[Rfam]
RNA: SAM riboswitch aptamer (S box leader)
Organism: Bacillus sp. FJAT-50079
RNA sequence: UUCUUAUCCAGAGUGACUGAGGGACAGGCCCGAUGAAGUCCGGCAACCUACAAGUGAAAGCUUGAAAAGGUGCUAAUUCCUGCAGGUAUUAUACCUGAAAGAUAAGAU
Numbered sequence: 001u002u003c004u005u006a007u008c009c010a011g012a013g014u015g016a017c018u019g020a021g022g023g024a025c026a027g028g029c030c031c032g033a034u035g036a037a038g039u040c041c042g043g044c045a046a047c048c049u050a051c052a053a054g055u056g057a058a059a060g061c062u063u064g065a066a067a068a069g070g071u072g073c074u075a076a077u078u079c080c081u082g083c084a085g086g087u088a089u090u091a092u093a094c095c096u097g098a099a100a101g102a103u104a105a106g107a108u
Stems, first nucleotide, its partner, number of pairs: 002107007013041001015040003021031003025082004042074004047070002049066001051064002078100001083097006